[Rfam]
RNA sequence: UCCUGAGAAUGCCAAACCUGUCCGUAAGGCAGGGACGGAAAGCCGCGGGUCCCUUUGAAUCAAAGGGAAAGCCGGGUUGCCUGG
Dot-bracket structure: ...........((...((((.((....))))))...))..((((.(((.((((((.......))))))...)))))))......
Numbered sequence: 001u002c003c004u005g006a007g008a009a010u011g012c013c014a015a016a017c018c019u020g021u022c023c024g025u026a027a028g029g030c031a032g033g034g035a036c037g038g039a040a041a042g043c044c045g046c047g048g049g050u051c052c053c054u055u056u057g058a059a060u061c062a063a064a065g066g067g068a069a070a071g072c073c074g075g076g077u078u079g080c081c082u083g084g
Stems, first nucleotide, its partner, number of pairs: 012038002017033004022029002041078004046074003050068006
The family of this 84-nucleotide RNA sequence from Candidatus Vecturithrix granuli is "c-di-GMP-I riboswitch aptamer". A search with the family's covariance model found it, with a score of 61 bits.